[Rfam]
The record is a 191-nucleotide RNA from Handroanthus impetiginosus, which matches "MIR159 microRNA precursor family" in Rfam. NCBI's taxonomy places the organism under Eukaryota, asterids, lamiids, Crescentiina, Handroanthus. The family's consensus secondary structure was predicted with WAR. For this family Rfam cites "Novel and stress-regulated microRNAs and other small RNAs from Arabidopsis" (Sunkar and Zhu, Plant Cell, 2004).
RNA sequence: AACGAAAAAAGGGAGCUCCCUUCAGUCCAAGAAUAGGAGGCUUAAGAUUCAACUUGACUCCCGCAUCAUUCAUUCAGUUACUGAAUAAAAUCAUUCUAUAGCUAUUCGGCAAUUGGAUGAAUGAGACGGCAGCAAAUUAAAUCUCGUUGUCCCCCAUGAGUGGACUGAAGAAAGCUCUCUUUAAUAGUUAA
Numbered sequence: 001a002a003c004g005a006a007a008a009a010a011g012g013g014a015g016c017u018c019c020c021u022u023c024a025g026u027c028c029a030a031g032a033a034u035a036g037g038a039g040g041c042u043u044a045a046g047a048u049u050c051a052a053c054u055u056g057a058c059u060c061c062c063g064c065a066u067c068a069u070u071c072a073u074u075c076a077g078u079u080a081c082u083g084a085a086u087a088a089a090a091u092c093a094u095u096c097u098a099u100a101g102c103u104a105u106u107c108g109g110c111a112a113u114u115g116g117a118u119g120a121a122u123g124a125g126a127c128g129g130c131a132g133c134a135a136a137u138u139a140a141a142u143c144u145c146g147u148u149g150u151c152c153c154c155c156a157u158g159a160g161u162g163g164a165c166u167g168a169a170g171a172a173a174g175c176u177c178u179c180u181u182u183a184a185u186a187g188u189u190a191a
Stems, first nucleotide, its partner, number of pairs: 013177005020170001023167007036154001058132002061129003067123004075115001